[Rfam]
RNA sequence: AGAGAGUAAGCCGAAAAUCUAAAGAGUAGGCA
Numbered sequence: 001a002g003a004g005a006g007u008a009a010g011c012c013g014a015a016a017a018u019c020u021a022a023a024g025a026g027u028a029g030g031c032a
Stems, first nucleotide, its partner, number of pairs: 003020003010031003